[Rfam]
RNA sequence: UAUGGUAAUGAGGCAUAUGAGCGGACGGUAGUGACACCCUUAUGAUUGGGGGUGGUGCCGGUGACAGUAUAUCAAGCGUUGACACUUGCAAUCUCUUUUGCGGGUUUAAUUGUUAUGAUUCUGUCAUUCAAUAAAAGAAAAUGAUCCGCUUCAUAUGCCAUUGCAGUGGCUGAAGUGGAUCGUUUUUUGUGUUCGAAUGAUUUACUCUGCACUACUGUUCGCUUAAUGCGGAAGUUACCAUACUUGCCAUCGGUGUUCCAGCACCGAUG
Numbered sequence: 001u002a003u004g005g006u007a008a009u010g011a012g013g014c015a016u017a018u019g020a021g022c023g024g025a026c027g028g029u030a031g032u033g034a035c036a037c038c039c040u041u042a043u044g045a046u047u048g049g050g051g052g053u054g055g056u057g058c059c060g061g062u063g064a065c066a067g068u069a070u071a072u073c074a075a076g077c078g079u080u081g082a083c084a085c086u087u088g089c090a091a092u093c094u095c096u097u098u099u100g101c102g103g104g105u106u107u108a109a110u111u112g113u114u115a116u117g118a119u120u121c122u123g124u125c126a127u128u129c130a131a132u133a134a135a136a137g138a139a140a141a142u143g144a145u146c147c148g149c150u151u152c153a154u155a156u157g158c159c160a161u162u163g164c165a166g167u168g169g170c171u172g173a174a175g176u177g178g179a180u181c182g183u184u185u186u187u188u189g190u191g192u193u194c195g196a197a198u199g200a201u202u203u204a205c206u207c208u209g210c211a212c213u214a215c216u217g218u219u220c221g222c223u224u225a226a227u228g229c230g231g232a233a234g235u236u237a238c239c240a241u242a243c244u245u246g247c248c249a250u251c252g253g254u255g256u257u258c259c260a261g262c263a264c265c266g267a268u269g
Stems, first nucleotide, its partner, number of pairs: 001242005007236003012218001014157008027146003035054007063125005069119001078089001099117002102114001167214003219231004248269009